[Rfam]
RNA sequence: GUGGCCGUGUAGUCCCAGGUGGCGUCGGCGUCCAGCAGGGAGUUCUCGCCGAAGCGGUCGCCGUCGCCGAGGACGGCCACGGCGACGUCGUCGCCGUAGGGGCCCUCGGAGGUCUGGCUGACGCGGCCGUGGGCGAGGAGGUGGAUCUCGGAGGCGGCGUUGCCCCGGGUGACGAUGAUGUCGCCGGCGGAGAAGUCGCGCUGGACGCAGCGGUCGGCGAGCGCGGUGAGGACGUCGAUGUCCUCGAAGCCGCGCAGCAGGGCGAGUUCACCGAGCUCGCGGGGGAUGACACGGACCGUGGCGCCGUCCUGGACGAACUCCACGCGCCCGUCGCCGACGGUGUAGCUGAGCCGGCGGUUGACCCGGUAGGCGCCACCCUUGGUCUCCACCCAGGGGAGCAUGCGCAGCAGCCACCGGGAGGUGAUCUCCUGCAUCUGCGGGGCGGACUUGGUGGUGGUGGCGAGGUUCCGUGCGGCGUGCGUGCUGAGGGACUGCUGCG
Numbered sequence: 001g002u003g004g005c006c007g008u009g010u011a012g013u014c015c016c017a018g019g020u021g022g023c024g025u026c027g028g029c030g031u032c033c034a035g036c037a038g039g040g041a042g043u044u045c046u047c048g049c050c051g052a053a054g055c056g057g058u059c060g061c062c063g064u065c066g067c068c069g070a071g072g073a074c075g076g077c078c079a080c081g082g083c084g085a086c087g088u089c090g091u092c093g094c095c096g097u098a099g100g101g102g103c104c105c106u107c108g109g110a111g112g113u114c115u116g117g118c119u120g121a122c123g124c125g126g127c128c129g130u131g132g133g134c135g136a137g138g139a140g141g142u143g144g145a146u147c148u149c150g151g152a153g154g155c156g157g158c159g160u161u162g163c164c165c166c167g168g169g170u171g172a173c174g175a176u177g178a179u180g181u182c183g184c185c186g187g188c189g190g191a192g193a194a195g196u197c198g199c200g201c202u203g204g205a206c207g208c209a210g211c212g213g214u215c216g217g218c219g220a221g222c223g224c225g226g227u228g229a230g231g232a233c234g235u236c237g238a239u240g241u242c243c244u245c246g247a248a249g250c251c252g253c254g255c256a257g258c259a260g261g262g263c264g265a266g267u268u269c270a271c272c273g274a275g276c277u278c279g280c281g282g283g284g285g286a287u288g289a290c291a292c293g294g295a296c297c298g299u300g301g302c303g304c305c306g307u308c309c310u311g312g313a314c315g316a317a318c319u320c321c322a323c324g325c326g327c328c329c330g331u332c333g334c335c336g337a338c339g340g341u342g343u344a345g346c347u348g349a350g351c352c353g354g355c356g357g358u359u360g361a362c363c364c365g366g367u368a369g370g371c372g373c374c375a376c377c378c379u380u381g382g383u384c385u386c387c388a389c390c391c392a393g394g395g396g397a398g399c400a401u402g403c404g405c406a407g408c409a410g411c412c413a414c415c416g417g418g419a420g421g422u423g424a425u426c427u428c429c430u431g432c433a434u435c436u437g438c439g440g441g442g443c444g445g446a447c448u449u450g451g452u453g454g455u456g457g458u459g460g461c462g463a464g465g466u467u468c469c470g471u472g473c474g475g476c477g478u479g480c481g482u483g484c485u486g487a488g489g490g491a492c493u494g495c496u497g498c499g
Base pairs, nucleotide, nucleotide: 007389008388009387011385012384014382015381018328019327021325025322027320028319031316032315036312038310039309040308041307047303048302049301050300051299054233058229059228060227061226062225063224064223065111067109068108075103077102078101080099082097083096084095086093117222118221119220122217127212130209132206134204136202137201141197144196155189156188158186159185161183163177166174167173234296235295236294240290241289242288244286245285250282251281252280253279254278256277257276258275260271262269329342330341331340332339353377354376356374357373362370363369391431392430393429394428395427396426397425399423400422401421403418405416407415437476438475440473442471443470444469445468446467447465448464449463451461452460484499487496488495
Shown here is a 499-nucleotide RNA sequence from Streptomyces termitum, a member of the family "Saccharopolyspora sRNA 350". It scores 158 bits against the family's covariance model. The organism belongs to Streptomyces, within Bacteria. Pairs were carried over by alignment from the consensus structure, which was predicted with RNAfold. A reference for the family is Liu et al. (2013), "Prediction and characterization of small non-coding RNAs related to secondary metabolites in Saccharopolyspora erythraea", PLoS One.